RNA sequence: UUGCAGUUAAAAAGCUCGUAGUUGGAUCUCGGGUCCAGGCUGGCGGUCCGACGCCUGUCGGUUACUGCCUGCUCCUGACCUACCUCCCGGUUUUUCGCCCUUGGUGCUCUUGACUGAGUGUCUCGGGUGGCCGGAACGUUUACUUUGAAAAAAUUAGAGUGUUCAAAGCAGGCAAUAUCGCCUGAAUAAUGGUGCAUGGAAUAAUGGAAUAGGACCUCGGUUCUAUUUUGCUGGUUUUCGGAGCUCGAGGUAAUGAUUAAGAGGGACUGACGGGGGCAUUCGUAUUACGGUGUUAGAGGUGAAAUUCUUGGAUCGCCGUAAGACGAACUACUGCGAAAGCAUUUGCCAAGCAUGUUUUCAUUAGUCAAGAACGAAAGUCAGAGGUUCGAAGACGAUCAGAUACCGUCGUAGUUCUGACCAUAAACGAUGCCAACUAGCGAUCCGCCGGAGUUGCUUCAAUGACUCGGCAGGCAGCCCCCGGGAAACCAAAGUUUUUGGGUUCCGGGGGAAGUAUGGUUGCAAAGCUGAAACUUAAAGGAAU
Numbered sequence: 001u002u003g004c005a006g007u008u009a010a011a012a013a014g015c016u017c018g019u020a021g022u023u024g025g026a027u028c029u030c031g032g033g034u035c036c037a038g039g040c041u042g043g044c045g046g047u048c049c050g051a052c053g054c055c056u057g058u059c060g061g062u063u064a065c066u067g068c069c070u071g072c073u074c075c076u077g078a079c080c081u082a083c084c085u086c087c088c089g090g091u092u093u094u095u096c097g098c099c100c101u102u103g104g105u106g107c108u109c110u111u112g113a114c115u116g117a118g119u120g121u122c123u124c125g126g127g128u129g130g131c132c133g134g135a136a137c138g139u140u141u142a143c144u145u146u147g148a149a150a151a152a153a154u155u156a157g158a159g160u161g162u163u164c165a166a167a168g169c170a171g172g173c174a175a176u177a178u179c180g181c182c183u184g185a186a187u188a189a190u191g192g193u194g195c196a197u198g199g200a201a202u203a204a205u206g207g208a209a210u211a212g213g214a215c216c217u218c219g220g221u222u223c224u225a226u227u228u229u230g231c232u233g234g235u236u237u238u239c240g241g242a243g244c245u246c247g248a249g250g251u252a253a254u255g256a257u258u259a260a261g262a263g264g265g266a267c268u269g270a271c272g273g274g275g276g277c278a279u280u281c282g283u284a285u286u287a288c289g290g291u292g293u294u295a296g297a298g299g300u301g302a303a304a305u306u307c308u309u310g311g312a313u314c315g316c317c318g319u320a321a322g323a324c325g326a327a328c329u330a331c332u333g334c335g336a337a338a339g340c341a342u343u344u345g346c347c348a349a350g351c352a353u354g355u356u357u358u359c360a361u362u363a364g365u366c367a368a369g370a371a372c373g374a375a376a377g378u379c380a381g382a383g384g385u386u387c388g389a390a391g392a393c394g395a396u397c398a399g400a401u402a403c404c405g406u407c408g409u410a411g412u413u414c415u416g417a418c419c420a421u422a423a424a425c426g427a428u429g430c431c432a433a434c435u436a437g438c439g440a441u442c443c444g445c446c447g448g449a450g451u452u453g454c455u456u457c458a459a460u461g462a463c464u465c466g467g468c469a470g471g472c473a474g475c476c477c478c479c480g481g482g483a484a485a486c487c488a489a490a491g492u493u494u495u496u497g498g499g500u501u502c503c504g505g506g507g508g509a510a511g512u513a514u515g516g517u518u519g520c521a522a523a524g525c526u527g528a529a530a531c532u533u534a535a536a537g538g539a540a541u
Stems, first nucleotide, its partner, number of pairs: 004504001006502001012501001014372001016370002021365003263359004267354001271350001275347004281325002285321008296307003333340002377418006387411001391407004429500003432493003437475002441471002444468005450463003480487002506533003515526004